The record is a 65-nucleotide part of an RNA from Chrysochloris asiatica, which matches "Eukaryotic large subunit ribosomal RNA" in Rfam. Lineage of the source: Eukaryota > Gnathostomata > Sarcopterygii > Dipnotetrapodomorpha > Chrysochloris.
RNA sequence: GCGCAGUCCGCCCCUAGGAUUCGACCCGGUGGCGGGUCCGGCAGUGCCAGCUGUCUGGCGGAUCU
Numbered sequence: 001g002c003g004c005a006g007u008c009c010g011c012c013c014c015u016a017g018g019a020u021u022c023g024a025c026c027c028g029g030u031g032g033c034g035g036g037u038c039c040g041g042c043a044g045u046g047c048c049a050g051c052u053g054u055c056u057g058g059c060g061g062a063u064c065u
Stems, first nucleotide, its partner, number of pairs: 008061005